[Rfam]
RNA sequence: GCACCUUUUAAAUCAGUCCCGUGAGGCUGGCAAGGGUAGACGGAUAAUGAGACGCAGGGUUCGUGUGUCUUGUUUGCAGGGAAUAGCUCUUGCCUGACGGGCAAGGGUUUUUUUGU
Numbered sequence: 001g002c003a004c005c006u007u008u009u010a011a012a013u014c015a016g017u018c019c020c021g022u023g024a025g026g027c028u029g030g031c032a033a034g035g036g037u038a039g040a041c042g043g044a045u046a047a048u049g050a051g052a053c054g055c056a057g058g059g060u061u062c063g064u065g066u067g068u069c070u071u072g073u074u075u076g077c078a079g080g081g082a083a084u085a086g087c088u089c090u091u092g093c094c095u096g097a098c099g100g101g102c103a104a105g106g107g108u109u110u111u112u113u114u115g116u
Base pairs, nucleotide, nucleotide: 003037004036005035006034007033008032013030014029015028016027017026018025041079043077046074047073048072049071050070051069052068053067054066055065056064081113082112083111085109086108087107088106089105090104091103092102093101094100
Record summary:
Rfam assigns this 116-nucleotide RNA from Marinithermofilum abyssi to the family "PyrR binding site". By type it is a cis-regulatory element. Rfam describes the family as follows. This family represents the PyrR binding site and terminator structure. This RNA structure is found upstream of a variety of genes involved in pyrimidine biosynthesis and transport. It scores 58 bits against the family's covariance model. For this family Rfam cites "Molecular recognition of pyr mRNA by the Bacillus subtilis attenuation regulatory protein PyrR" (Bonner et al., Nucleic Acids Res, 2001). Taxonomically the source falls in Marinithermofilum (Bacteria, Bacillati, Bacillota, Thermoactinomycetaceae).